[Rfam]
RNA sequence: UGGUGAUGUCUCCUUACCACUACCAAUGGAGGCACUCGGUUGUUCUGUGGGUAAACUUUCGUUUACCUUAGACACAUUUGUUGUCAGUGGAGCGGCGUGAGGUUGGGUUGAAUGCCCU
Numbered sequence: 001u002g003g004u005g006a007u008g009u010c011u012c013c014u015u016a017c018c019a020c021u022a023c024c025a026a027u028g029g030a031g032g033c034a035c036u037c038g039g040u041u042g043u044u045c046u047g048u049g050g051g052u053a054a055a056c057u058u059u060c061g062u063u064u065a066c067c068u069u070a071g072a073c074a075c076a077u078u079u080g081u082u083g084u085c086a087g088u089g090g091a092g093c094g095g096c097g098u099g100a101g102g103u104u105g106g107g108u109u110g111a112a113u114g115c116c117c118u
Stems, first nucleotide, its partner, number of pairs: 001019004007034007035101004039096008049068008071085004105117004
Shown here is a 118-nucleotide RNA from Aquibacillus halophilus, a member of the family "epsC RNA". NCBI's taxonomy places the organism under Bacteria, Bacillati, Bacillota, Bacilli, Aquibacillus. It scores 107 bits against the family's covariance model. The family's RNA type in Rfam is cis-regulatory element.